Shown here is a 91-nucleotide RNA sequence from Sesamum indicum, a member of the family "Small nucleolar RNA R11/Z151". Rfam 15.1 lists 802 matches to the family in 218 species. For this family Rfam cites "Identification of 66 box C/D snoRNAs in Arabidopsis thaliana: extensive gene duplications generated multiple isoforms predicting new ribosomal RNA 2'-O-methylation sites" (Barneche et al., J Mol Biol, 2001). Gene Ontology terms of the family: nucleolus and RNA processing. The family's consensus secondary structure was predicted with PFOLD. The organism belongs to Sesamum, within Eukaryota.

[Rfam]
RNA sequence: CGGCUUGUGAUGAUAAAUUAAUUAUCUUAGCGGAUUUCAGUGAGAUUAUUCCAAAUAAUCAAGGAUCUGAUUGUUACACACACUGAAGCCU
Numbered sequence: 001c002g003g004c005u006u007g008u009g010a011u012g013a014u015a016a017a018u019u020a021a022u023u024a025u026c027u028u029a030g031c032g033g034a035u036u037u038c039a040g041u042g043a044g045a046u047u048a049u050u051c052c053a054a055a056u057a058a059u060c061a062a063g064g065a066u067c068u069g070a071u072u073g074u075u076a077c078a079c080a081c082a083c084u085g086a087a088g089c090c091u
Stems, first nucleotide, its partner, number of pairs: 002090004